[Rfam]
This 120-nucleotide sequence from Mitsuaria sp. 7 belongs to the Rfam family "Glycine riboswitch aptamer". NCBI's taxonomy places the organism under Bacteria, Pseudomonadati, Pseudomonadota, Sphaerotilaceae, Roseateles. Rfam 15.1 lists 9,425 matches to the family in 5,228 species. A search with the family's covariance model found it, with a score of 55 bits.
RNA sequence: GGCGUCCUCACUGGAGAGAGACGGGGCGGACCUUGCGGUCGAGCCCGUCCACCGAAGGGGCAAGCCGCCGGCCAACCGCCGACGGCCAAUCUCUCAGGUAAAGCGGACAGCGAGGGCAUC
Numbered sequence: 001g002g003c004g005u006c007c008u009c010a011c012u013g014g015a016g017a018g019a020g021a022c023g024g025g026g027c028g029g030a031c032c033u034u035g036c037g038g039u040c041g042a043g044c045c046c047g048u049c050c051a052c053c054g055a056a057g058g059g060g061c062a063a064g065c066c067g068c069c070g071g072c073c074a075a076c077c078g079c080c081g082a083c084g085g086c087c088a089a090u091c092u093c094u095c096a097g098g099u100a101a102a103g104c105g106g107a108c109a110g111c112g113a114g115g116g117c118a119u120c
Stems, first nucleotide, its partner, number of pairs: 006115004011110003020049006051099003054095002058093003064086004